[Rfam]
RNA sequence: UACCCGAUCCGGGCCCCUCUGACGCGAGCCAUGCCGGCGUUUGCGUGAUGUCGGAUCUAAACC
Numbered sequence: 001u002a003c004c005c006g007a008u009c010c011g012g013g014c015c016c017c018u019c020u021g022a023c024g025c026g027a028g029c030c031a032u033g034c035c036g037g038c039g040u041u042u043g044c045g046u047g048a049u050g051u052c053g054g055a056u057c058u059a060a061a062c063c
Base pairs, nucleotide, nucleotide: 006057007056008055009054010053011052012051022046023045024044025043026042027041028040029039
RNA: terC RNA